[Rfam]
RNA sequence: CAGCACUGAUGAGCUGAAGUAUAGUCUGACCUGGUAUUGCAAGCCCCCCAGGGGGUGCUCUGACCAGGAUGUGACGACUCUAAUCUUCUCUCUGAGCAG
Dot-bracket structure: ..((..................................(((..............))).....................................))..
RNA: Z30 small nucleolar RNA